[Rfam]
RNA sequence: CCUCCACGGGGCCUUCCUUCCUAGUUCUCCCCAGAGUCGGGAGAAGCUGGGUUGAGAGGGUGAAAAGAAAAAACA
Dot-bracket structure: .............((((..(((((...(.(((......))).)...)))))..).))).................
The record is a 75-nucleotide RNA sequence from Aotus nancymaae, which matches "mir-320 microRNA precursor family" in Rfam.
On this family, see Berezikov et al., Genome Res 2006: "Many novel mammalian microRNA candidates identified by extensive cloning and RAKE analysis".
Its family is annotated with negative regulation of gene expression, miRNA-mediated post-transcriptional gene silencing and long-term synaptic potentiation in the Gene Ontology.